[Rfam]
RNA sequence: GGGUGUUACAGCUCUUUCAGAAUUUGUCUAGUAGGCUUUCCAGUUUAUGCCGAAGAGCCCCU
Numbered sequence: 001g002g003g004u005g006u007u008a009c010a011g012c013u014c015u016u017u018c019a020g021a022a023u024u025u026g027u028c029u030a031g032u033a034g035g036c037u038u039u040c041c042a043g044u045u046u047a048u049g050c051c052g053a054a055g056a057g058c059c060c061c062u
Stems, first nucleotide, its partner, number of pairs: 034059006041052001043050002
Shown here is a 62-nucleotide RNA from Theropithecus gelada, a member of the family "U7 small nuclear RNA". Rfam's curators write: Animal histone pre-mRNAs are spliced by a different mechanism than nuclear pre-mRNAs and self-splicing introns.